Bacterial small signal recognition particle RNA: a 97-nucleotide RNA from Crinalium epipsammum. Clan: SRP clan. On this family, see Regalia et al., Nucleic Acids Res 2002: "Prediction of signal recognition particle RNA genes". NCBI's taxonomy places the organism under Bacteria, Bacillati, Gomontiellales, Crinalium, Crinalium epipsammum. By type it is a non-coding RNA gene.

RNA sequence: GAUCUGGACUCACGCGGUCACAACGCCCAAACUUUGUCAGAACCGGAAGGUGGCAGCAAUACGGGAUGCUUGCGACAGGCGUGAUAUCCGGGUCAUC
Dot-bracket structure: ...(((((.(((((..(((.((...(((.....((((....(((....)))....))))...))).....)).)))...)))))..)))))......